[Rfam]
RNA sequence: AGAAUCCACACGCUAACUAUUGUGAAACCCACAAUAUUGUGGUUAUUAUUGUUGUGGGUUUCACAAUAGUUAGCGUGUGGAUUCUCUGAGGUAUU
Numbered sequence: 001a002g003a004a005u006c007c008a009c010a011c012g013c014u015a016a017c018u019a020u021u022g023u024g025a026a027a028c029c030c031a032c033a034a035u036a037u038u039g040u041g042g043u044u045a046u047u048a049u050u051g052u053u054g055u056g057g058g059u060u061u062c063a064c065a066a067u068a069g070u071u072a073g074c075g076u077g078u079g080g081a082u083u084c085u086c087u088g089a090g091g092u093a094u095u
Stems, first nucleotide, its partner, number of pairs: 005081008015071008024062001025060002028058006035051002

A member of the RNA family "mir-210 microRNA precursor family" from Bugula neritina, 95 nucleotides long.
The family has 26 seed sequences and 790 matches in Rfam 15.1.
A reference for the family is Chen et al. (2005), "The developmental miRNA profiles of zebrafish as determined by small RNA cloning", Genes Dev.
The base pairs follow the family's consensus structure, which was predicted with WAR.